This 85-nucleotide RNA sequence from Domibacillus mangrovi belongs to the Rfam family "c-di-GMP-I riboswitch aptamer".
[Rfam]
RNA sequence: UUCAGAUAAAGGCAAACUAAUCAAAAGGUUAGGACGCAAAGUCACAGGUCUAAGGCCAAACGGCUAUGAUAGCUGGACUGCCUCA
Numbered sequence: 001u002u003c004a005g006a007u008a009a010a011g012g013c014a015a016a017c018u019a020a021u022c023a024a025a026a027g028g029u030u031a032g033g034a035c036g037c038a039a040a041g042u043c044a045c046a047g048g049u050c051u052a053a054g055g056c057c058a059a060a061c062g063g064c065u066a067u068g069a070u071a072g073c074u075g076g077a078c079u080g081c082c083u084c085a
Stems, first nucleotide, its partner, number of pairs: 012037002017032006040079004045075003048070003055064003
Clan: c-di-GMP_I riboswitch clan.
A search with the family's covariance model found it, with a score of 81 bits.